[Rfam]
RNA sequence: AUAAAAGCAGGGAUCGAUUGCCUUUGUGAAUCGGUCUCCCGUAAACGUCAGGAAUAUAGAGUGGGCAUCGUUAUUGGGUGAACCUCUUGAUUUUUUCAUGACGGAUAUGGUUCAGUAAACGAAGCUAUAUUU
Numbered sequence: 001a002u003a004a005a006a007g008c009a010g011g012g013a014u015c016g017a018u019u020g021c022c023u024u025u026g027u028g029a030a031u032c033g034g035u036c037u038c039c040c041g042u043a044a045a046c047g048u049c050a051g052g053a054a055u056a057u058a059g060a061g062u063g064g065g066c067a068u069c070g071u072u073a074u075u076g077g078g079u080g081a082a083c084c085u086c087u088u089g090a091u092u093u094u095u096u097c098a099u100g101a102c103g104g105a106u107a108u109g110g111u112u113c114a115g116u117a118a119a120c121g122a123a124g125c126u127a128u129a130u131u132u
Base pairs, nucleotide, nucleotide: 005048007046011037012036014034015033016032017031064126065125066124068122069121070120071119072118079114080113081112082111083110084109
The family of this 132-nucleotide RNA from Helianthus annuus is "Small nucleolar RNA snoR74". A search with the family's covariance model found it, with a score of 98 bits. Gene Ontology terms of the family: RNA processing and nucleolus. On this family, see Marker et al., Curr Biol 2002: "Experimental RNomics: identification of 140 candidates for small non-messenger RNAs in the plant Arabidopsis thaliana". NCBI's taxonomy places the organism under Eukaryota, Embryophyta, Asteraceae, Heliantheae, Helianthus. The family's consensus secondary structure was predicted with WAR.